The record is an 86-nucleotide sequence from Clostridiales bacterium PH28_bin88, which matches "c-di-GMP-I-GGC riboswitch aptamer" in Rfam. The match comes from Rfam's covariance-model search (76 bits). The literature on the family includes a 2012 paper in Biochemistry by Smith et al., "Structural and biochemical characterization of linear dinucleotide analogues bound to the c-di-GMP-I aptamer".

[Rfam]
RNA sequence: UCCGAUAAGGGCAAACCUGUCGAAAGGCAGGGGCGCAAAGCUACGGGCCUAAAGUUUUGUCAUCCAUGGCCGCCGGGCUGCCGCAG
Numbered sequence: 001u002c003c004g005a006u007a008a009g010g011g012c013a014a015a016c017c018u019g020u021c022g023a024a025a026g027g028c029a030g031g032g033g034c035g036c037a038a039a040g041c042u043a044c045g046g047g048c049c050u051a052a053a054g055u056u057u058u059g060u061c062a063u064c065c066a067u068g069g070c071c072g073c074c075g076g077g078c079u080g081c082c083g084c085a086g
Stems, first nucleotide, its partner, number of pairs: 001086001003083002011036002016031006034072001039079004044075003047070003